Rfam assigns this 102-nucleotide RNA from Cocos nucifera to the family "Small nucleolar RNA Z107/R87". The family has 9 seed sequences and 783 matches in Rfam 15.1. It is annotated as a C/D-box small nucleolar RNA.
[Rfam]
RNA sequence: GAUUGCGGUGAUGACUCGGAAAAUUCAAGCUCAACAGACCGGAUCGCAGGUCCCUCUCUUUGAGGGAUUUGUAUGUCGACGAUCCCGCUGAACUGAGCAAUC
Numbered sequence: 001g002a003u004u005g006c007g008g009u010g011a012u013g014a015c016u017c018g019g020a021a022a023a024u025u026c027a028a029g030c031u032c033a034a035c036a037g038a039c040c041g042g043a044u045c046g047c048a049g050g051u052c053c054c055u056c057u058c059u060u061u062g063a064g065g066g067a068u069u070u071g072u073a074u075g076u077c078g079a080c081g082a083u084c085c086c087g088c089u090g091a092a093c094u095g096a097g098c099a100a101u102c
Stems, first nucleotide, its partner, number of pairs: 001102006